[Rfam]
RNA: MIR5070 microRNA precursor family
RNA sequence: CAGGGUACCCUUCAACCCUACUUAGUUCAACUAAAUGAACUAAAUUUUCAGAAUUCACAUCAUUUUUGAAAAUUUAGUUUGUUUGGUUGAACUAAGAAGGGUCGGAGGGUACCCUA
Numbered sequence: 001c002a003g004g005g006u007a008c009c010c011u012u013c014a015a016c017c018c019u020a021c022u023u024a025g026u027u028c029a030a031c032u033a034a035a036u037g038a039a040c041u042a043a044a045u046u047u048u049c050a051g052a053a054u055u056c057a058c059a060u061c062a063u064u065u066u067u068g069a070a071a072a073u074u075u076a077g078u079u080u081g082u083u084u085g086g087u088u089g090a091a092c093u094a095a096g097a098a099g100g101g102u103c104g105g106a107g108g109g110u111a112c113c114c115u116a
Stems, first nucleotide, its partner, number of pairs: 002115012015102005021096023